Description: A member of the RNA family "IS605-orfB-I RNA", 220 nucleotides long. The family's consensus secondary structure is taken from published work. The family's RNA type in Rfam is small RNA.
RNA sequence: GUCAUAUAAAGAUGUAUUAGAUGCAAGACAAUCUAGCAUUUCCCUUUAUGGCAUUGUAUUAAAUUUAGAAGUUCAAACAAAAGUAAUUGUUGUGUGGUUAAUAAUCGAAACAGUUUGAGUUUGGAUGGAAGAGGUUAACUGUAUGACCUUGUGUUGAGAAACACUAGAAACAAUCUUAAAUAACAAUUUCUUAAUUUUCAUUAUUUUGAGUUACAGUAUC
Numbered sequence: 001g002u003c004a005u006a007u008a009a010a011g012a013u014g015u016a017u018u019a020g021a022u023g024c025a026a027g028a029c030a031a032u033c034u035a036g037c038a039u040u041u042c043c044c045u046u047u048a049u050g051g052c053a054u055u056g057u058a059u060u061a062a063a064u065u066u067a068g069a070a071g072u073u074c075a076a077a078c079a080a081a082a083g084u085a086a087u088u089g090u091u092g093u094g095u096g097g098u099u100a101a102u103a104a105u106c107g108a109a110a111c112a113g114u115u116u117g118a119g120u121u122u123g124g125a126u127g128g129a130a131g132a133g134g135u136u137a138a139c140u141g142u143a144u145g146a147c148c149u150u151g152u153g154u155u156g157a158g159a160a161a162c163a164c165u166a167g168a169a170a171c172a173a174u175c176u177u178a179a180a181u182a183a184c185a186a187u188u189u190c191u192u193a194a195u196u197u198u199c200a201u202u203a204u205u206u207u208g209a210g211u212u213a214c215a216g217u218a219u220c
Stems, first nucleotide, its partner, number of pairs: 001052006008045001010041006018035005023029001071126008085115007096106002099103001132149005138217006144170001151164005175210006181203003